The record is a 622-nucleotide RNA sequence, which matches "c-sis internal ribosome entry site (IRES)" in Rfam. Rfam describes the family as follows. This family represents the c-sis 5'-UTR which contains three modules that can individually mediate internal ribosome entry. A reference for the family is Sella et al. (1999), "Differentiation-induced internal translation of c-sis mRNA: analysis of the cis elements and their differentiation-linked binding to the hnRNP C protein", Mol Cell Biol. It is one of the family's seed sequences.
RNA sequence: CGGAGCAGCCGCAGCUCGCAGCUCGCAGCCCGCAGCCCGCAGAGGACGCCCAGAGCGGCGAGCGGGCGGGCAGACGGACCGACGGACUCGCGCCGCGUCCACCUGUCGGCCGGGCCCAGCCGAGCGCGCAGCGGGCACGCCGCGCGCGCGGAGCAGCCGUGCCCGCCGCCCGGGCCCGCCGCCAGGGCGCACACGCUCCCGCCCCCCUACCCGGCCCGGGCGGGAGUUUGCACCUCUCCCUGCCCGGGUGCUCGAGCUGCCGUUGCAAAGCCAACUUUGGAAAAAGUUUUUUGGGGGAGACUUGGGCCUUGAGGUGCCCAGCUCCGCGCUUUCCGAUUUUGGGGGCCUUUCCAGAAAAUGUUGCAAAAAAGCUAAGCCGGCGGGCAGAGGAAAACGCCUGUAGCCGGCGAGUGAAGACGAACCAUCGACUGCCGUGUUCCUUUUCCUCUUGGAGGUUGGAGUCCCCUGGGCGCCCCCACACGGCUAGACGCCUCGGCUGGUUCGCGACGCAGCCCCCCGGCCGUGGAUGCUGCACUCGGGCUCGGGAUCCGCCCAGGUAGCGGCCUCGGACCCAGGUCCUGCGCCCAGGUCCUCCCCUGCCCCCCAGCGACGGAGCCGGGGC
Number, nucleotide and partner (000 for none) at each position: 001c000002g272003g271004a000005g266006c265007a264008g263009c262010c000011g260012c259013a258014g257015c256016u255017c254018g253019c000020a252021g251022c250023u000024c000025g000026c000027a000028g000029c000030c000031c000032g000033c000034a000035g000036c000037c000038c000039g239040c000041a237042g236043a235044g234045g233046a000047c189048g188049c187050c186051c185052a000053g183054a000055g182056c181057g180058g179059c178060g177061a000062g175063c174064g000065g121066g120067c119068g117069g116070g115071c114072a000073g000074a000075c112076g111077g110078a000079c109080c108081g107082a106083c105084g104085g103086a000087c000088u000089c097090g096091c095092g000093c000094c000095g091096c090097g089098u000099c000100c000101a000102c000103c085104u084105g083106u082107c081108g080109g079110c077111c076112g075113g000114g071115c070116c069117c068118a000119g067120c066121c065122g000123a000124g000125c172126g171127c000128g169129c168130a000131g166132c165133g164134g163135g162136c161137a160138c159139g158140c151141c150142g149143c148144g000145c000146g000147c000148g143149c142150g141151g140152a000153g000154c000155a000156g000157c000158c139159g138160u137161g136162c135163c134164c133165g132166c131167c000168g129169c128170c000171c126172g125173g000174g063175c062176c000177c060178g059179c058180c057181g056182c055183c053184a000185g051186g050187g049188c048189g047190c000191a000192c230193a229194c000195g227196c226197u225198c224199c223200c222201g221202c220203c219204c218205c000206c214207c213208u000209a000210c000211c000212c000213g207214g206215c000216c000217c000218g204219g203220g202221c201222g200223g199224g198225a197226g196227u195228u000229u193230g192231c000232a000233c045234c044235u043236c042237u041238c000239c039240c000241u000242g000243c000244c000245c000246g000247g000248g000249u000250g022251c021252u020253c018254g017255a016256g015257c014258u013259g012260c011261c000262g009263u008264u007265g006266c005267a000268a000269a000270g000271c003272c002273a000274a287275c286276u285277u284278u283279g000280g000281a000282a000283a278284a277285a276286g275287u274288u000289u000290u000291u000292u000293g598294g597295g596296g595297g594298a593299g592300a590301c589302u588303u587304g586305g585306g584307c583308c000309u000310u000311g000312a000313g536314g535315u534316g533317c532318c000319c000320a000321g530322c529323u527324c526325c525326g524327c523328g522329c000330u000331u000332u000333c520334c519335g518336a000337u000338u000339u000340u000341g517342g516343g515344g514345g513346c512347c000348u000349u000350u000351c000352c000353a000354g000355a000356a000357a000358a000359u000360g000361u000362u000363g372364c371365a000366a000367a000368a000369a000370a000371g364372c363373u000374a000375a000376g408377c407378c406379g405380g404381c403382g000383g000384g401385c400386a399387g398388a000389g395390g000391a000392a000393a000394a000395c389396g000397c000398c387399u386400g385401u384402a000403g381404c380405c379406g378407g377408c376409g000410a000411g510412u509413g508414a000415a000416g505417a000418c504419g503420a502421a501422c500423c499424a498425u496426c495427g494428a493429c487430u486431g484432c483433c482434g481435u480436g479437u478438u460439c459440c458441u000442u455443u454444u453445c452446c451447u000448c000449u000450u000451g446452g445453a444454g443455g442456u000457u000458g440459g439460a438461g471462u470463c469464c468465c000466c000467u000468g464469g463470g462471c461472g000473c000474c000475c000476c000477c000478a437479c436480a435481c434482g433483g432484c431485u000486a430487g429488a000489c000490g000491c000492c000493u428494c427495g426496g425497c000498u424499g423500g422501u421502u420503c419504g418505c416506g000507a000508c413509g412510c411511a000512g346513c345514c344515c343516c342517c341518c335519g334520g333521c000522c328523g327524u326525g325526g324527a323528u000529g322530c321531u000532g317533c316534a315535c314536u313537c000538g579539g578540g577541c576542u000543c000544g573545g572546g571547a000548u570549c569550c568551g567552c000553c000554c000555a566556g565557g564558u563559a000560g000561c000562g000563g558564c557565c556566u555567c551568g550569g549570a548571c546572c545573c544574a000575g000576g541577u540578c539579c538580u000581g000582c000583g307584c306585c305586c304587a303588g302589g301590u300591c000592c299593u298594c297595c296596c295597c294598u293599g000600c000601c000602c621603c620604c619605c618606a000607g616608c615609g000610a000611c000612g000613g000614a000615g608616c607617c000618g605619g604620g603621g602622c000
Its family is annotated with ribosome binding in the Gene Ontology. The family's consensus secondary structure was predicted with ILM.